RNA sequence: GGUUGUAAUUCCGGCAACCCGGAGGCGUUCUGGAUAGGGGUUCGACUCCCCUCAUCUCCACCCAAGUGCAUGCGAUUGCGUGCCUUUCGGUGGGGAUGUACCGGUUUCGACAGGGCGGGCAAUGGUACGCAGGCAACCCGAUAGGCGACGGACGUAAUCCGCGCAAAUCCAUAAACGCCAACGAUGAGCGUUUCGCAGUAGCUGCAUAA
Dot-bracket structure: (((((........(.(.........(((.(((...(((((.......)))))(((((((((............................)))))))))............))).)))........).).....)))))((.(........).)).......................................................
The record is a 209-nucleotide RNA sequence from Ectopseudomonas mendocina, which matches "permuted transfer-messenger RNA" in Rfam. Rfam classes the family as a non-coding RNA gene. Taxonomically the source falls in Ectopseudomonas (Bacteria, Pseudomonadota, Gammaproteobacteria, Pseudomonadaceae). Bacterial tmRNA, also known as 10Sa RNA or SsrA, is named for its dual tRNA and mRNA-like properties.